U7 small nuclear RNA: a 65-nucleotide RNA from Aotus nancymaae.
The family's consensus secondary structure was predicted with PFOLD.
The source organism's lineage runs through Eukaryota, Vertebrata, Mammalia, Haplorrhini and Aotus.
The literature on the family includes a 1994 paper in Nucleic Acids Res by Spycher et al., "3' end processing of mouse histone pre-mRNA: evidence for additional base-pairing between U7 snRNA and pre-mRNA".
It scores 48 bits against the family's covariance model.
RNA sequence: AAAUGUGACAGCUCUUUUAGAAUUUGUCUAGCAGACGUUUUUCUGGUUGGUACAGAAAACCCCAC
Numbered sequence: 001a002a003a004u005g006u007g008a009c010a011g012c013u014c015u016u017u018u019a020g021a022a023u024u025u026g027u028c029u030a031g032c033a034g035a036c037g038u039u040u041u042u043c044u045g046g047u048u049g050g051u052a053c054a055g056a057a058a059a060c061c062c063c064a065c
Stems, first nucleotide, its partner, number of pairs: 037061001039059007